[Rfam]
RNA: Plant small nucleolar RNA R71
RNA sequence: AAAUUAUGAUGAGGGCAUGCAUUUAGUAGGUCCUUGAAUCUCUACCAAGCUUGGAAGAAACUCUCACCAAUAUUUAGGACAAACUGAGAAAUAAUACGUCGUAGUGU
Numbered sequence: 001a002a003a004u005u006a007u008g009a010u011g012a013g014g015g016c017a018u019g020c021a022u023u024u025a026g027u028a029g030g031u032c033c034u035u036g037a038a039u040c041u042c043u044a045c046c047a048a049g050c051u052u053g054g055a056a057g058a059a060a061c062u063c064u065c066a067c068c069a070a071u072a073u074u075u076a077g078g079a080c081a082a083a084c085u086g087a088g089a090a091a092u093a094a095u096a097c098g099u100c101g102u103a104g105u106g107u
Base pairs, nucleotide, nucleotide: 001107003105004104057074058073060071